[Rfam]
RNA sequence: GUAAGGAGCCUCCUACAGGCGAAGCCUGUAUUAGGAUGAAGGCGACGACCUGCCGCAUCACGAAGUGAUGGGGUGAAAACCAUG
Numbered sequence: 001g002u003a004a005g006g007a008g009c010c011u012c013c014u015a016c017a018g019g020c021g022a023a024g025c026c027u028g029u030a031u032u033a034g035g036a037u038g039a040a041g042g043c044g045a046c047g048a049c050c051u052g053c054c055g056c057a058u059c060a061c062g063a064a065g066u067g068a069u070g071g072g073g074u075g076a077a078a079a080c081c082a083u084g
Stems, first nucleotide, its partner, number of pairs: 008043004013038001014030006052074003056070002060066002
This 84-nucleotide sequence belongs to the Rfam family "GA-cis RNA". The base pairs follow the family's consensus structure, which is taken from published work.